[Rfam]
This 125-nucleotide RNA from Fundicoccus ignavus belongs to the Rfam family "Ribosomal protein L10 leader". The family's consensus secondary structure was predicted with CMfinder. The source organism's lineage runs through Bacteria, Bacillati, Bacillota, Bacilli and Fundicoccus. On this family, see Iben and Draper, Biochemistry 2008: "Specific interactions of the L10(L12)4 ribosomal protein complex with mRNA, rRNA, and L11". By type it is a cis-regulatory leader.

RNA sequence: UAUAUAAGUAUUUUACGACCAAAGACAGUAAGUGGCGAAUGCCUUAAUUUCUUACCGAGGAAGUUCCACAGUGAUGAGGAAGCUAUCUCUAUGUCUAGGUGACAUAGAGAUUUUUUUAUUAUGAA
Numbered sequence: 001u002a003u004a005u006a007a008g009u010a011u012u013u014u015a016c017g018a019c020c021a022a023a024g025a026c027a028g029u030a031a032g033u034g035g036c037g038a039a040u041g042c043c044u045u046a047a048u049u050u051c052u053u054a055c056c057g058a059g060g061a062a063g064u065u066c067c068a069c070a071g072u073g074a075u076g077a078g079g080a081a082g083c084u085a086u087c088u089c090u091a092u093g094u095c096u097a098g099g100u101g102a103c104a105u106a107g108a109g110a111u112u113u114u115u116u117u118a119u120u121a122u123g124a125a
Stems, first nucleotide, its partner, number of pairs: 028055005034043003086110010